[Rfam]
RNA sequence: UAAUGGCGCACUACUGGUGUGCCAUUAGUAGCACGCCACUAGUAUUUUUUACGCCAUUAGUAUACCACAUACUAAUGGCGCACCAGUAGUGCGCCAUUA
Numbered sequence: 001u002a003a004u005g006g007c008g009c010a011c012u013a014c015u016g017g018u019g020u021g022c023c024a025u026u027a028g029u030a031g032c033a034c035g036c037c038a039c040u041a042g043u044a045u046u047u048u049u050u051a052c053g054c055c056a057u058u059a060g061u062a063u064a065c066c067a068c069a070u071a072c073u074a075a076u077g078g079c080g081c082a083c084c085a086g087u088a089g090u091g092c093g094c095c096a097u098u099a
Stems, first nucleotide, its partner, number of pairs: 001099006008092007016084009027073003
Notes: The record is a 99-nucleotide sequence from Triticum turgidum, which matches "mir-160 microRNA precursor family" in Rfam. Rfam 15.1 lists 1,502 matches to the family in 247 species. Rfam links the family to the GO terms RISC complex and miRNA-mediated post-transcriptional gene silencing. The family's consensus secondary structure was predicted with PFOLD.